Rfam assigns this 150-nucleotide RNA sequence from Monodelphis domestica to the family "Small nucleolar RNA SNORA57". The organism belongs to Monodelphis, within Eukaryota. Rfam links the family to the GO terms RNA processing and nucleolus. Pairs were carried over by alignment from the consensus structure, which was predicted with PFOLD. Rfam describes the family as follows. U99 belongs to the H/ACA class of snoRNAs which are thought to guide the sites of modification of uridines to pseudouridines, the target for this family is unknown. For this family Rfam cites "Identification of 13 novel human modification guide RNAs" (Vitali et al., Nucleic Acids Res, 2003). It is one of the family's seed sequences.

RNA sequence: CCUCCAUUUCUUGGCGGAGGCCGGGUGCUUAGUCCUGGCCCCCGUUAUGUACGGAGGCAGAACAAGGGGACCCUGGGUCCCCCCGGCGUCAUGUCUUCGGUGCCGGCGGUUCCCCAUCCGCCGGUUCUAUCCUCAAUCGCCGGGACACCG
Numbered sequence: 001c002c003u004c005c006a007u008u009u010c011u012u013g014g015c016g017g018a019g020g021c022c023g024g025g026u027g028c029u030u031a032g033u034c035c036u037g038g039c040c041c042c043c044g045u046u047a048u049g050u051a052c053g054g055a056g057g058c059a060g061a062a063c064a065a066g067g068g069g070a071c072c073c074u075g076g077g078u079c080c081c082c083c084c085g086g087c088g089u090c091a092u093g094u095c096u097u098c099g100g101u102g103c104c105g106g107c108g109g110u111u112c113c114c115c116a117u118c119c120g121c122c123g124g125u126u127c128u129a130u131c132c133u134c135a136a137u138c139g140c141c142g143g144g145a146c147a148c149c150g
Stems, first nucleotide, its partner, number of pairs: 001057005015044003019040002022037004084142005103124007